RNA sequence: AAGUUUGAAGACGAGGAGCUUGUCUCCUACAUCCUCACCGGCCUCGAUAUUGAGUACAAUCCCCUCGUGUCGGCUAUUUCUGCAAGGGUGGAACCCAUCUCUCUUAGUGAGCUUUAUACUCAACUCAUUAGUUUCGAAU
Numbered sequence: 001a002a003g004u005u006u007g008a009a010g011a012c013g014a015g016g017a018g019c020u021u022g023u024c025u026c027c028u029a030c031a032u033c034c035u036c037a038c039c040g041g042c043c044u045c046g047a048u049a050u051u052g053a054g055u056a057c058a059a060u061c062c063c064c065u066c067g068u069g070u071c072g073g074c075u076a077u078u079u080c081u082g083c084a085a086g087g088g089u090g091g092a093a094c095c096c097a098u099c100u101c102u103c104u105u106a107g108u109g110a111g112c113u114u115u116a117u118a119c120u121c122a123a124c125u126c127a128u129u130a131g132u133u134u135c136g137a138a139u
Stems, first nucleotide, its partner, number of pairs: 004138005088108002091105002